[Rfam]
RNA sequence: UCCUUAUCAAGAGCGGCUGAGGGACCAGGCCCUGUGAAGCCCGGCAACCUGCGUGUGAGCGCAAGGUGCCAAAUCCUGCGGAAAACUCCGGAAGAUGAGGC
Numbered sequence: 001u002c003c004u005u006a007u008c009a010a011g012a013g014c015g016g017c018u019g020a021g022g023g024a025c026c027a028g029g030c031c032c033u034g035u036g037a038a039g040c041c042c043g044g045c046a047a048c049c050u051g052c053g054u055g056u057g058a059g060c061g062c063a064a065g066g067u068g069c070c071a072a073a074u075c076c077u078g079c080g081g082a083a084a085a086c087u088c089c090g091g092a093a094g095a096u097g098a099g100g101c
Stems, first nucleotide, its partner, number of pairs: 002100007013042001015041003021032003026078004043070004048066002050063004074093001079090004
RNA: SAM riboswitch aptamer (S box leader)
Organism: Harryflintia acetispora